[Rfam]
RNA sequence: UAUUAUAAUUUAAUUUUCCGUCGUAUAAUGUUGGGAAUAUGGCCCAAGAGUCUCUACCGAAGUACCGUAAAUACUUCGACUACGGCAUGGAUAGAUGGGCGC
Numbered sequence: 001u002a003u004u005a006u007a008a009u010u011u012a013a014u015u016u017u018c019c020g021u022c023g024u025a026u027a028a029u030g031u032u033g034g035g036a037a038u039a040u041g042g043c044c045c046a047a048g049a050g051u052c053u054c055u056a057c058c059g060a061a062g063u064a065c066c067g068u069a070a071a072u073a074c075u076u077c078g079a080c081u082a083c084g085g086c087a088u089g090g091a092u093a094g095a096u097g098g099g100c101g102c
Base pairs, nucleotide, nucleotide: 020086021085022084023083024082025081029049031047032046033045034044035043058078059077060076061075062074063073064072